[Rfam]
This 95-nucleotide RNA sequence from Hydrogenovibrio crunogenus belongs to the Rfam family "t44 RNA". Pairs were carried over by alignment from the consensus structure, which was predicted with LocARNA. Rfam classes the family as a small RNA. A search with the family's covariance model found it, with a score of 73 bits. The source organism's lineage runs through Bacteria, Pseudomonadota, Gammaproteobacteria, Piscirickettsiaceae and Hydrogenovibrio. Rfam's curators write: This family consists of a number of bacterial RNA genes of between 135 and 170 bases in length. The t44 gene has been identified in several species of enteric bacteria but homologs have also been identified in Pseudomonas and Coxiella species. The t44 gene is found between the map and rpsB genes in all species in the full alignment apart from Shigella flexneri. The function of this RNA is unknown.
RNA sequence: UAAUUUUAACAGAAAAUCCACACGCCUGCCGACACAUCAAACGGGGUGCCAGUUUCAUUAAUCUGGUUCGUUUGAUGGGCAGGCGGAGGCAUAAC
Numbered sequence: 001u002a003a004u005u006u007u008a009a010c011a012g013a014a015a016a017u018c019c020a021c022a023c024g025c026c027u028g029c030c031g032a033c034a035c036a037u038c039a040a041a042c043g044g045g046g047u048g049c050c051a052g053u054u055u056c057a058u059u060a061a062u063c064u065g066g067u068u069c070g071u072u073u074g075a076u077g078g079g080c081a082g083g084c085g086g087a088g089g090c091a092u093a094a095c
Stems, first nucleotide, its partner, number of pairs: 023085008035077009048067005